[Rfam]
Nucleotides: 170
Stems, first nucleotide, its partner, number of pairs: 003168008017029003031150002033139002035075006078115002119135005141153003
Number, partner (000 for none) and nucleotide at each position: 001000a002000a003168g004167c005166g006165u007164u008163c009162u010161c011000a012000g013000g014000g015000c016000g017029g018028g019027g020000u021000g022000c023000a024000a025000u026000u027019c028018c029017c030000c031150a032149c033139c034138g035075g036074c037073g038072g039071u040070g041000a042000u043000g044000g045000c046000g047000g048000c049000g050000u051000g052000g053000c054000g055000a056000c057000a058000c059000g060000a061000c062000c063000g064000c065000a066000c067000g068000a069000g070040u071039g072038c073037c074036g075035c076000g077000a078115g079114c080000g081000c082000c083000c084000a085000c086000g087000c088000c089000a090000g091000g092000g093000u094000c095000u096000g097000u098000c099000c100000c101000u102000g103000g104000c105000a106000u107000g108000g109000g110000g111000u112000c113000a114079g115078c116000a117000g118000a119135c120134c121133c122132g123131g124000u125000g126000a127000g128000a129000u130000c131123c132122c133121g134120g135119g136000a137000c138034c139033g140000a141153c142152g143151g144000u145000c146000a147000c148000a149032g150031u151143c152142c153141g154000g155000a156000u157000g158000c159000a160000a161010g162009a163008g164007a165006g166005c167004g168003u169000g170000a
Record summary:
Rfam assigns this 170-nucleotide sequence from Hydrogenophaga sp. RAC07 to the family "FMN riboswitch aptamer (RFN element)". The match comes from Rfam's covariance-model search (96 bits). The literature on the family includes a 2002 paper in Nucleic Acids Res by Vitreschak et al., "Regulation of riboflavin biosynthesis and transport genes in bacteria by transcriptional and translational attenuation".